[Rfam]
RNA: mir-460 microRNA precursor family
RNA sequence: CUCUAAAUUGUCCUCAUUGUACAUGCUGUGUGUAUUUGUCUCACUUACACAGCGCAUGCAAUGUGGACAUUUUAGAU
Numbered sequence: 001c002u003c004u005a006a007a008u009u010g011u012c013c014u015c016a017u018u019g020u021a022c023a024u025g026c027u028g029u030g031u032g033u034a035u036u037u038g039u040c041u042c043a044c045u046u047a048c049a050c051a052g053c054g055c056a057u058g059c060a061a062u063g064u065g066g067a068c069a070u071u072u073u074a075g076a077u
Base pairs, nucleotide, nucleotide: 012066013065015063016062017061018060019059020058021057024054026052027051028050029049030048031047